RNA sequence: GAUCAUUCUCAGGGCGGGGCGAAAUUCCCCACCGGCGGUAAGUGGGCCCAGUUCCACAAGCCCGCGAGCGGCCUCAGUGAUCAGUCCAGUGAGGUGCCAGCAGAUCCGGUGAAAUACCGGAGCCGACGGUCAUAGUCCGGAUGAAAGAGAAUGCAG
Numbered sequence: 001g002a003u004c005a006u007u008c009u010c011a012g013g014g015c016g017g018g019g020c021g022a023a024a025u026u027c028c029c030c031a032c033c034g035g036c037g038g039u040a041a042g043u044g045g046g047c048c049c050a051g052u053u054c055c056a057c058a059a060g061c062c063c064g065c066g067a068g069c070g071g072c073c074u075c076a077g078u079g080a081u082c083a084g085u086c087c088a089g090u091g092a093g094g095u096g097c098c099a100g101c102a103g104a105u106c107c108g109g110u111g112a113a114a115u116a117c118c119g120g121a122g123c124c125g126a127c128g129g130u131c132a133u134a135g136u137c138c139g140g141a142u143g144a145a146a147g148a149g150a151a152u153g154c155a156g
Base pairs, nucleotide, nucleotide: 004153005152006151007150008149009148010147017029018028019027031136032135033125034124035065036064037063038062060123061122068101069100105121106120107119108118109117127139128138129137